This 143-nucleotide RNA from Ictidomys tridecemlineatus belongs to the Rfam family "ODC internal ribosome entry site (IRES)".

RNA sequence: AUUUCCACUGCUGGUCCAAGGACACGGGAUUUGGAAAUCCUGGAGAAUUACCUUUGUAAGAAGCUGGGAAUAAUUUCUUUAAAUUUUAAAUUUCAUCUCUUAGUUUUCCAUUUUGUUGCAUUUCUGAGGCAAAUGGAGAAUCC
Numbered sequence: 001a002u003u004u005c006c007a008c009u010g011c012u013g014g015u016c017c018a019a020g021g022a023c024a025c026g027g028g029a030u031u032u033g034g035a036a037a038u039c040c041u042g043g044a045g046a047a048u049u050a051c052c053u054u055u056g057u058a059a060g061a062a063g064c065u066g067g068g069a070a071u072a073a074u075u076u077c078u079u080u081a082a083a084u085u086u087u088a089a090a091u092u093u094c095a096u097c098u099c100u101u102a103g104u105u106u107u108c109c110a111u112u113u114u115g116u117u118g119c120a121u122u123u124c125u126g127a128g129g130c131a132a133a134u135g136g137a138g139a140a141u142c143c
Stems, first nucleotide, its partner, number of pairs: 005068002010064003015059001017056005024049001026041004073141002076139004091131001093129002